[Rfam]
This 71-nucleotide RNA sequence from Lates calcarifer belongs to the Rfam family "miR-430 microRNA precursor family". Pairs were carried over by alignment from the consensus structure, which was predicted with RNAalifold. The match comes from Rfam's covariance-model search (62 bits). For this family Rfam cites "MicroRNAs regulate brain morphogenesis in zebrafish" (Giraldez et al., Science, 2005). Gene Ontology terms of the family: miRNA-mediated post-transcriptional gene silencing and RISC complex.
RNA sequence: AACAUUACCCUAACACAGGCACAGACUUGAAUUUGGAAAGCAGUAAGUGCUAUUUGUUGGGGGCAGUUUUU
Numbered sequence: 001a002a003c004a005u006u007a008c009c010c011u012a013a014c015a016c017a018g019g020c021a022c023a024g025a026c027u028u029g030a031a032u033u034u035g036g037a038a039a040g041c042a043g044u045a046a047g048u049g050c051u052a053u054u055u056g057u058u059g060g061g062g063g064c065a066g067u068u069u070u071u
Stems, first nucleotide, its partner, number of pairs: 004067003008063004013057003017053001018051005025044003
Dot-bracket structure: ...(((.((((.(((.((((((..(((..............)))..))))).).)))..)))).)))....